[Rfam]
RNA sequence: GUUGCAAAGUUUGAGGCCUCAGCAGAAGCGCUCACAGUAUGGCCCUGACAGAUUCCAACAAAUCUGCAAAUUCUGCA
Numbered sequence: 001g002u003u004g005c006a007a008a009g010u011u012u013g014a015g016g017c018c019u020c021a022g023c024a025g026a027a028g029c030g031c032u033c034a035c036a037g038u039a040u041g042g043c044c045c046u047g048a049c050a051g052a053u054u055c056c057a058a059c060a061a062a063u064c065u066g067c068a069a070a071u072u073c074u075g076c077a
Base pairs, nucleotide, nucleotide: 013045015044016043017042018041022076023075024074025073026072027071028040030038049066050065051064052063053062054061
RNA: Mammalian CPEB3 ribozyme